[Rfam]
The family of this 121-nucleotide sequence from Arthrobacter woluwensis is "TPP riboswitch aptamer (THI element)". Taxonomically the source falls in Arthrobacter (Bacteria, Bacillati, Micrococcales, Micrococcaceae). It scores 65 bits against the family's covariance model.

Nucleotides: 121
Stems, first nucleotide, its partner, number of pairs: 007108004011071004017044005051065005076102004082095004
Number, partner (000 for none) and nucleotide at each position: 001000a002000a003000c004000g005000a006000a007108c008107g009106a010105c011071a012070g013069g014068g015000g016000a017044g018043c019042g020041c021040c022000g023000c024000c025000a026000c027000c028000u029000c030000a031000g032000g033000g034000u035000g036000u037000g038000u039000g040021g041020g042019c043018g044017c045000u046000g047000a048000g049000a050000g051065u052064g053063c054062g055061g056000a057000g058000c059000a060000a061055c062054c063053g064052c065051a066000g067000a068014c069013c070012c071011u072000c073000g074000a075000a076102c077101c078100u079099g080000a081000u082095c083094c084093g085092g086000u087000u088000a089000g090000u091000a092085c093084c094083g095082g096000c097000g098000a099079u100078a101077g102076g103000g104000a105010g106009u107008c108007g109000a110000g111000c112000a113000u114000c115000u116000c117000a118000g119000a120000a121000c
Pairs were carried over by alignment from the consensus structure, which is taken from published work.